[Rfam]
mir-2807 microRNA precursor family: an 84-nucleotide RNA sequence from Bombyx mori. A search with the family's covariance model found it, with a score of 65 bits. A reference for the family is Liu et al. (2010), "MicroRNAs of Bombyx mori identified by Solexa sequencing", BMC Genomics. The base pairs follow the family's consensus structure, which was predicted with RNAalifold. Rfam links the family to the GO terms RISC complex and miRNA-mediated post-transcriptional gene silencing.
RNA sequence: UUAAGUCAAAUUUGUAUGCAGCUGGAACAAUGCCCCUAGCGGCAAACAUAGGCAAACGUUCCAACUCCAUACAAUUUUGACUUA
Numbered sequence: 001u002u003a004a005g006u007c008a009a010a011u012u013u014g015u016a017u018g019c020a021g022c023u024g025g026a027a028c029a030a031u032g033c034c035c036c037u038a039g040c041g042g043c044a045a046a047c048a049u050a051g052g053c054a055a056a057c058g059u060u061c062c063a064a065c066u067c068c069a070u071a072c073a074a075u076u077u078u079g080a081c082u083u084a
Stems, first nucleotide, its partner, number of pairs: 008078003012074005018068001020066002023063006034052002039047001